This 72-nucleotide RNA sequence from Nomascus leucogenys belongs to the Rfam family "Small nucleolar RNA SNORD112". It scores 62 bits against the family's covariance model. On this family, see Cavaille et al., Hum Mol Genet 2002: "Identification of tandemly-repeated C/D snoRNA genes at the imprinted human 14q32 domain reminiscent of those at the Prader-Willi/Angelman syndrome region". The organism belongs to Nomascus, within Eukaryota. Gene Ontology terms of the family: nucleolus and RNA processing.

Nucleotides: 072
Stems, first nucleotide, its partner, number of pairs: 001070006
Number, partner (000 for none) and nucleotide at each position: 001070u002069g003068g004067a005066c006065c007000a008000a009000u010000g011000a012000u013000g014000a015000g016000a017000g018000c019000a020000u021000g022000u023000c024000a025000c026000a027000a028000a029000g030000c031000a032000a033000g034000g035000c036000u037000u038000a039000u040000g041000a042000u043000u044000a045000a046000u047000c048000c049000a050000g051000u052000u053000c054000u055000g056000u057000a058000c059000a060000c061000c062000u063000g064000a065006g066005g067004u068003c069002c070001a071000a072000u